The record is a 129-nucleotide sequence from Nocardioides sp. JS614, which matches "ALIL pseudoknot" in Rfam. A search with the family's covariance model found it, with a score of 76 bits.
[Rfam]
RNA sequence: GGCCUUCUUCGCGGCGGAGCUCGACCGCCAACCCCGGUACUGAUCGAGUUCAUCGACCAGCAUCGCGAUCUGUACGGAGUCGAGCCGAUCUGCCGGGUGCUCACCGAGCACGGGUUCAAGAUCGCUCCG
Numbered sequence: 001g002g003c004c005u006u007c008u009u010c011g012c013g014g015c016g017g018a019g020c021u022c023g024a025c026c027g028c029c030a031a032c033c034c035c036g037g038u039a040c041u042g043a044u045c046g047a048g049u050u051c052a053u054c055g056a057c058c059a060g061c062a063u064c065g066c067g068a069u070c071u072g073u074a075c076g077g078a079g080u081c082g083a084g085c086c087g088a089u090c091u092g093c094c095g096g097g098u099g100c101u102c103a104c105c106g107a108g109c110a111c112g113g114g115u116u117c118a119a120g121a122u123c124g125c126u127c128c129g
Base pairs, nucleotide, nucleotide: 013029014028015027016026017025075129076128077127078126079125086124087123089121090120091119

The base pairs follow the family's consensus structure, which is taken from published work.
The source organism's lineage runs through Bacteria, Actinomycetota, Propionibacteriales, Nocardioidaceae and Nocardioides.
Rfam links the family to the GO term positive regulation of translational frameshifting.